This 293-nucleotide sequence from Phtheirospermum japonicum belongs to the Rfam family "Plant signal recognition particle RNA".
[Rfam]
RNA sequence: GCCGAGCUCAGUAACGGGAGCUUGUAACCCAUGUGGGGGCAUUAAAGUGAUUGGACAUUGGUCUUGCUUAGACGGCUGGGCCUCUGGCGGCUAAUUCCUGGCCUGCCCGCUCCAAGUGUGGAGUUGGUCCACGAAAGCAUGGGCUUCUUGGCUCCUAGAGUGGAGGGCACGGCGUCAGGCUGGUCUCACAGAGCCAGCGAAAACCUCCCGCUCCCUACAGUGGAAGGAUUACGGGCCGGUGCUUCCUGGGCCCACUAAAGCUGGAUGGGCUGGCUUAAUUUAUUAUUAUUAUA
Numbered sequence: 001g002c003c004g005a006g007c008u009c010a011g012u013a014a015c016g017g018g019a020g021c022u023u024g025u026a027a028c029c030c031a032u033g034u035g036g037g038g039g040c041a042u043u044a045a046a047g048u049g050a051u052u053g054g055a056c057a058u059u060g061g062u063c064u065u066g067c068u069u070a071g072a073c074g075g076c077u078g079g080g081c082c083u084c085u086g087g088c089g090g091c092u093a094a095u096u097c098c099u100g101g102c103c104u105g106c107c108c109g110c111u112c113c114a115a116g117u118g119u120g121g122a123g124u125u126g127g128u129c130c131a132c133g134a135a136a137g138c139a140u141g142g143g144c145u146u147c148u149u150g151g152c153u154c155c156u157a158g159a160g161u162g163g164a165g166g167g168c169a170c171g172g173c174g175u176c177a178g179g180c181u182g183g184u185c186u187c188a189c190a191g192a193g194c195c196a197g198c199g200a201a202a203a204c205c206u207c208c209c210g211c212u213c214c215c216u217a218c219a220g221u222g223g224a225a226g227g228a229u230u231a232c233g234g235g236c237c238g239g240u241g242c243u244u245c246c247u248g249g250g251c252c253c254a255c256u257a258a259a260g261c262u263g264g265a266u267g268g269g270c271u272g273g274c275u276u277a278a279u280u281u282a283u284u285a286u287u288a289u290u291a292u293a
Stems, first nucleotide, its partner, number of pairs: 001040003004023006028037003043293002046290006053283001055281001057279004061274003068268003073263005078253006086245001089243002092241002098239008107227002111224004116218003120214005126154002129151003133147003137144002155160001162208005173199003180191003
Taxonomically the source falls in Phtheirospermum (Eukaryota, Embryophyta, Euphyllophyta, Mesangiospermae).